[Rfam]
RNA sequence: AGUCCCCUGCUUGGUUCGUGAUUGGCGGCAAUUUUUUGAGCCAACACUCAAAAAAUGGGAGCCACCCCCGGCUGUGGUGAGCAUGCCUGCCAUUGAAGCAGGAAGCCUGAAGCAGUCGUCUGGGUCCCACCUGGGAAACCAGGUUCAAAAGUUCCGCUGUAACGGCCGAUAGCGGGGGACUA
Number, nucleotide and partner (000 for none) at each position: 001a000002g180003u179004c178005c177006c176007c175008u174009g173010c172011u171012u168013g167014g166015u165016u000017c164018g163019u162020g000021a000022u000023u000024g000025g000026c000027g000028g000029c000030a000031a000032u000033u151034u150035u149036u000037u147038g146039a145040g144041c143042c142043a000044a000045c000046a000047c000048u000049c000050a000051a000052a000053a000054a000055a000056u000057g128058g127059g126060a000061g125062c124063c123064a000065c000066c000067c000068c000069c118070g117071g116072c115073u114074g113075u112076g000077g000078u000079g000080a000081g106082c105083a000084u000085g000086c102087c101088u100089g099090c098091c000092a000093u000094u000095g000096a000097a000098g090099c089100a088101g087102g086103a000104a000105g082106c081107c000108u000109g000110a000111a000112g075113c074114a073115g072116u071117c070118g069119u000120c000121u000122g000123g063124g062125u061126c059127c058128c057129a000130c000131c000132u000133g000134g000135g000136a000137a000138a000139c000140c000141a000142g042143g041144u040145u039146c038147a037148a000149a035150a034151g033152u000153u000154c000155c000156g000157c000158u000159g000160u000161a000162a019163c018164g017165g015166c014167c013168g012169a000170u000171a011172g010173c009174g008175g007176g006177g005178g004179a003180c002181u000182a000

Shown here is a 182-nucleotide RNA from Desulfomonile tiedjei, a member of the family "6S / SsrS RNA".
It is annotated as a non-coding RNA gene.
For this family Rfam cites "6S RNA in Rhodobacter sphaeroides: 6S RNA and pRNA transcript levels peak in late exponential phase and gene deletion causes a high salt stress phenotype" (Elkina et al., RNA Biol, 2017).
E. coli 6S RNA was the first non coding RNA to be sequenced, but its function was unknown until recently. It consists of 184 nucleotides that fold into an extended hairpin structure with a large single-stranded internal bulge. The 6S RNA specifically associates with RNA polymerase holoenzyme containing the sigma70 specificity factor. This interaction represses expression from a sigma70-dependent promoter during stationary phase. 6S RNA homologs have recently been identified in most bacterial genomes. Many Gram-positive species have two copies of 6S RNA. In Bacillus subtilis, both copies appear to interact with RNA polymerase holoenzyme containing the housekeeping sigma factor and be expressed during different stages of growth. In many proteobacteria, 6S RNA may be processed from a transcript encoding homologs of the E. coli YgfA protein which is a putative 5-formyltetrahydrofolate cycloligase activity.